[Rfam]
RNA sequence: GUUGUGAGGUAUGUUGGCUGGCUCGAAGCAUUCAAACCUUAUGUGUCGAAUGCAUCGGACCAGGCUUCAUUCCUCUCAAC
Numbered sequence: 001g002u003u004g005u006g007a008g009g010u011a012u013g014u015u016g017g018c019u020g021g022c023u024c025g026a027a028g029c030a031u032u033c034a035a036a037c038c039u040u041a042u043g044u045g046u047c048g049a050a051u052g053c054a055u056c057g058g059a060c061c062a063g064g065c066u067u068c069a070u071u072c073c074u075c076u077c078a079a080c
Base pairs, nucleotide, nucleotide: 001080002079003078004077006075007074008073009072011070012069013068016065018063019062020061021060024057025056026055
RNA: mir-166 microRNA precursor family